[Rfam]
RNA sequence: AAGGAACUUCGGUAGGUGAGGCUCCUAGGGAUACGGAUUGAUACCGCAAAGCAAUGGAGACAUUGCGAGAAGGUUAUCAGACUAUGUCGAAACCAAGGCAUAAUCUAACUCAAUUUCACUGCCCUAUAAAGCUAAAACUUGAACGGUGUCGGGU
Numbered sequence: 001a002a003g004g005a006a007c008u009u010c011g012g013u014a015g016g017u018g019a020g021g022c023u024c025c026u027a028g029g030g031a032u033a034c035g036g037a038u039u040g041a042u043a044c045c046g047c048a049a050a051g052c053a054a055u056g057g058a059g060a061c062a063u064u065g066c067g068a069g070a071a072g073g074u075u076a077u078c079a080g081a082c083u084a085u086g087u088c089g090a091a092a093c094c095a096a097g098g099c100a101u102a103a104u105c106u107a108a109c110u111c112a113a114u115u116u117c118a119c120u121g122c123c124c125u126a127u128a129a130a131g132c133u134a135a136a137a138c139u140u141g142a143a144c145g146g147u148g149u150c151g152g153g154u
Stems, first nucleotide, its partner, number of pairs: 005154001007152002011144001013096001015139003020133003026128001027125004037114005043074003053064004080105002083102001086099003
This 154-nucleotide RNA from Elusimicrobium minutum belongs to the Rfam family "M-box riboswitch aptamer (ykoK leader)". From the family's description: M-box riboswitch, also know as ykoK leader is described as a metaloregulatory RNA that sense divalent metals and function as a genetic control element of genes related to divalent metal transport in bacteria. It was first reported upstream of the B.subtilis ykoK gene and genes with related functions in other bacteria. Rfam 15.1 lists 1,095 matches to the family in 932 species.